RAGATH-18 RNA: a 61-nucleotide RNA.

RNA sequence: CCUUUGGAGAACUAAAAAACUUGAGUAGAUUUAUUUGAAAAAGAGUUCGUUGAAUUAGGAA
Number, nucleotide and partner (000 for none) at each position: 001c059002c058003u057004u000005u000006g000007g000008a000009g048010a047011a046012c045013u044014a000015a000016a000017a000018a000019a000020c043021u042022u041023g000024a000025g000026u000027a000028g035029a034030u000031u000032u000033a000034u029035u028036u000037g000038a000039a000040a000041a022042a021043g020044a013045g012046u011047u010048c009049g000050u000051u000052g000053a000054a000055u000056u000057a003058g002059g001060a000061a000
Rfam's curators put it in the seed alignment. It is annotated as a small RNA.